[Rfam]
RNA sequence: CCCCCAAGGGGAAGCGAAGACCCUAUGGAGCUUUACUGCAGGCUGUCGCUGAGACACGGUCGCUAGUGUGCAGGAUAGGUAGGAGCCGUUACACAGGUACCCGCGCUAGCGGGCCACCGAGGCAUCACUGAAAUACUACCCACUAGUGACUGUGACUCUCACUCCUGGCGGAGGACACCGGUAGCCGGGCAGUUUGACUGGGGCGGUACGCGCUUGAGAGAAGAUCGAGCGCGCCCCAUGAUCAUCUCAGCCGGGUCAGAAAUCCGGCGCAGAGUGCAAGAGCACAAGAUGGUCUGACAGUGUCCUGCCUAACGAAGGACGCUGACGCGAAAGCGGGGUCUAGCGAACCAAUCACGGUCCUCAAUGGGCCGGAUUGAUGACAGAAAAGCUACCCUAGGGAUAACAGAGUCGUCACUCGCAAGAGCACAUAUCGACCGAGUGGCUUGCUACCUCGAUGUCGGUUCCCUCCAUCCUGCCCGUGCAGAAGCGGGCAAGGGUGAGGUUGUUCGCCUAUUAAAGGAGGUCGUGAGCUGGGUUUAGACCGUCGUGAGACAGGUCGGCUGCUAUCUAUUGGGGGUGUAAC
Numbered sequence: 001c002c003c004c005c006a007a008g009g010g011g012a013a014g015c016g017a018a019g020a021c022c023c024u025a026u027g028g029a030g031c032u033u034u035a036c037u038g039c040a041g042g043c044u045g046u047c048g049c050u051g052a053g054a055c056a057c058g059g060u061c062g063c064u065a066g067u068g069u070g071c072a073g074g075a076u077a078g079g080u081a082g083g084a085g086c087c088g089u090u091a092c093a094c095a096g097g098u099a100c101c102c103g104c105g106c107u108a109g110c111g112g113g114c115c116a117c118c119g120a121g122g123c124a125u126c127a128c129u130g131a132a133a134u135a136c137u138a139c140c141c142a143c144u145a146g147u148g149a150c151u152g153u154g155a156c157u158c159u160c161a162c163u164c165c166u167g168g169c170g171g172a173g174g175a176c177a178c179c180g181g182u183a184g185c186c187g188g189g190c191a192g193u194u195u196g197a198c199u200g201g202g203g204c205g206g207u208a209c210g211c212g213c214u215u216g217a218g219a220g221a222a223g224a225u226c227g228a229g230c231g232c233g234c235c236c237c238a239u240g241a242u243c244a245u246c247u248c249a250g251c252c253g254g255g256u257c258a259g260a261a262a263u264c265c266g267g268c269g270c271a272g273a274g275u276g277c278a279a280g281a282g283c284a285c286a287a288g289a290u291g292g293u294c295u296g297a298c299a300g301u302g303u304c305c306u307g308c309c310u311a312a313c314g315a316a317g318g319a320c321g322c323u324g325a326c327g328c329g330a331a332a333g334c335g336g337g338g339u340c341u342a343g344c345g346a347a348c349c350a351a352u353c354a355c356g357g358u359c360c361u362c363a364a365u366g367g368g369c370c371g372g373a374u375u376g377a378u379g380a381c382a383g384a385a386a387a388g389c390u391a392c393c394c395u396a397g398g399g400a401u402a403a404c405a406g407a408g409u410c411g412u413c414a415c416u417c418g419c420a421a422g423a424g425c426a427c428a429u430a431u432c433g434a435c436c437g438a439g440u441g442g443c444u445u446g447c448u449a450c451c452u453c454g455a456u457g458u459c460g461g462u463u464c465c466c467u468c469c470a471u472c473c474u475g476c477c478c479g480u481g482c483a484g485a486a487g488c489g490g491g492c493a494a495g496g497g498u499g500a501g502g503u504u505g506u507u508c509g510c511c512u513a514u515u516a517a518a519g520g521a522g523g524u525c526g527u528g529a530g531c532u533g534g535g536u537u538u539a540g541a542c543c544g545u546c547g548u549g550a551g552a553c554a555g556g557u558c559g560g561c562u563g564c565u566a567u568c569u570a571u572u573g574g575g576g577g578u579g580u581a582a583c
Stems, first nucleotide, its partner, number of pairs: 001577007010569003014564002022398004027394002029390005035193004042185007051158003055154014078140005085123003100113005162173004196209001197207003210232006235338002241293006247273002250268006274283002298324009326335001328333001349376005355371005407448003411445001412442007422432002459534001460532004464526001465523005472497002476491005500512004540558004544553003

The family of this 583-nucleotide part of an RNA from Natronoarchaeum philippinense is "Archaeal large subunit ribosomal RNA". Taxonomically the source falls in Natronoarchaeum (Archaea, Methanobacteriati, Methanobacteriota, Halobacteriales). The family is grouped with related families in Rfam's "LSU clan". The match comes from Rfam's covariance-model search (2756 bits).